The record is a 272-nucleotide part of an RNA from Candidatus Korarchaeum cryptofilum, which matches "Archaeal large subunit ribosomal RNA" in Rfam.

RNA sequence: UGCAAGGCCGCCUGAGGGGAAGGGACCCUUAGUACGAAAGGAACGGGGUGUCGGGGCCUCCGGUGUACCGGUCGUCCGAAGGGGCGACGCCGGGUAGCCGCGCCCCAGCCGAUAAGGGCUGAAAGCAUCUAAGCCCGAAGCGGCCCCCGAAAAUAGGCGGCCUCGCCCCUCGUGGGGUUAGGGCGCGGGUAGAAGACCCGUUCGAUGGGGGGGUGGUGUAAGGCAGGAGCUUCGGCGGACUGCCUCAGCCUACCCCUCCCAAAGCCCGAGCG
Numbered sequence: 001u002g003c004a005a006g007g008c009c010g011c012c013u014g015a016g017g018g019g020a021a022g023g024g025a026c027c028c029u030u031a032g033u034a035c036g037a038a039a040g041g042a043a044c045g046g047g048g049u050g051u052c053g054g055g056g057c058c059u060c061c062g063g064u065g066u067a068c069c070g071g072u073c074g075u076c077c078g079a080a081g082g083g084g085c086g087a088c089g090c091c092g093g094g095u096a097g098c099c100g101c102g103c104c105c106c107a108g109c110c111g112a113u114a115a116g117g118g119c120u121g122a123a124a125g126c127a128u129c130u131a132a133g134c135c136c137g138a139a140g141c142g143g144c145c146c147c148c149g150a151a152a153a154u155a156g157g158c159g160g161c162c163u164c165g166c167c168c169c170u171c172g173u174g175g176g177g178u179u180a181g182g183g184c185g186c187g188g189g190u191a192g193a194a195g196a197c198c199c200g201u202u203c204g205a206u207g208g209g210g211g212g213g214u215g216g217u218g219u220a221a222g223g224c225a226g227g228a229g230c231u232u233c234g235g236c237g238g239a240c241u242g243c244c245u246c247a248g249c250c251u252a253c254c255c256c257u258c259c260c261a262a263a264g265c266c267c268g269a270g271c272g
Base pairs, nucleotide, nucleotide: 006162007161008160009159010158011157012156013155016148017147018146019145022052023051025049026048027047028046029045053106054105055104056103057102061100062099063098068093069092070091071090072089073086074085075084076083077082109143110142111141116136117135118134119133120132181267182266183265184264185201186200187199188198189197206261207260208259209257210256211255212254213253215250216249222244223243224242225241226240229236